Rfam assigns this 92-nucleotide RNA sequence from Dendrobium catenatum to the family "Small nucleolar RNA snoR27". Pairs were carried over by alignment from the consensus structure, which was predicted with WAR. Rfam 15.1 lists 649 matches to the family in 212 species. Clan: snR68 clan. On this family, see Brown et al., RNA 2001: "Multiple snoRNA gene clusters from Arabidopsis". Gene Ontology terms of the family: nucleolus and RNA processing.
[Rfam]
RNA sequence: UUUGGAUCAAUGAUGCAAACAUAUUACUGCGUUAUCUUUCUGAAGUACCUAAGAAGGGCUUGAAGACAACUACAACAUUUCUGAGAUCCAAA
Dot-bracket structure: (((((((..............................................................................)))))))